[Rfam]
RNA sequence: AUUAGAGCUUAGAAGAGGAUUAGUAACUUGUACAGCAUCUUUCAGAGAGCCGGAUGUAGGGUGGAAGCCGGUAGAUGUCAGUCUUGUGAACUCGCCUUGGAGCUAGAAGGUGAAUCACCAUUUAAAGCGGAGAGACUUUGAGUAUGCUCAAAGAUCCCUACAGCGGAGAGACUUUGAACUACGUUCAAAGAUCCCAAAGCGGAGAGACUUUGAGCUACACUCAAAGGUCCCUAUAUAUGGUGCUAGCCGGAUCGUCUCACCCGCGUUAAGGGGCAGAGUGAACACAGGCAAAGAAUGUCUGUGUUAACUAGGGUGGUACCACGGGAAUCUAACCUCUCGUCCCUAGC
Numbered sequence: 001a002u003u004a005g006a007g008c009u010u011a012g013a014a015g016a017g018g019a020u021u022a023g024u025a026a027c028u029u030g031u032a033c034a035g036c037a038u039c040u041u042u043c044a045g046a047g048a049g050c051c052g053g054a055u056g057u058a059g060g061g062u063g064g065a066a067g068c069c070g071g072u073a074g075a076u077g078u079c080a081g082u083c084u085u086g087u088g089a090a091c092u093c094g095c096c097u098u099g100g101a102g103c104u105a106g107a108a109g110g111u112g113a114a115u116c117a118c119c120a121u122u123u124a125a126a127g128c129g130g131a132g133a134g135a136c137u138u139u140g141a142g143u144a145u146g147c148u149c150a151a152a153g154a155u156c157c158c159u160a161c162a163g164c165g166g167a168g169a170g171a172c173u174u175u176g177a178a179c180u181a182c183g184u185u186c187a188a189a190g191a192u193c194c195c196a197a198a199g200c201g202g203a204g205a206g207a208c209u210u211u212g213a214g215c216u217a218c219a220c221u222c223a224a225a226g227g228u229c230c231c232u233a234u235a236u237a238u239g240g241u242g243c244u245a246g247c248c249g250g251a252u253c254g255u256c257u258c259a260c261c262c263g264c265g266u267u268a269a270g271g272g273g274c275a276g277a278g279u280g281a282a283c284a285c286a287g288g289c290a291a292a293g294a295a296u297g298u299c300u301g302u303g304u305u306a307a308c309u310a311g312g313g314u315g316g317u318a319c320c321a322c323g324g325g326a327a328u329c330u331a332a333c334c335u336c337u338c339g340u341c342c343c344u345a346g347c
Stems, first nucleotide, its partner, number of pairs: 007103002015098004026087002030083001038075003049072005253265003281305010310344004321340005